[Rfam]
The family of this 66-nucleotide sequence is "RAGATH-18 RNA".
The base pairs follow the family's consensus structure, which is taken from published work.
It is one of the family's seed sequences.
RNA sequence: UUUGUGGAUCGUCACAUCAAAUGAGAGUAGUUACUAAUAACAAAAUCAGACGGGAUGAAGCAGAAA
Numbered sequence: 001u002u003u004g005u006g007g008a009u010c011g012u013c014a015c016a017u018c019a020a021a022u023g024a025g026a027g028u029a030g031u032u033a034c035u036a037a038u039a040a041c042a043a044a045a046u047c048a049g050a051c052g053g054g055a056u057g058a059a060g061c062a063g064a065a066a
Stems, first nucleotide, its partner, number of pairs: 001064005009053005022048003030041003
Rfam classes the family as a small RNA.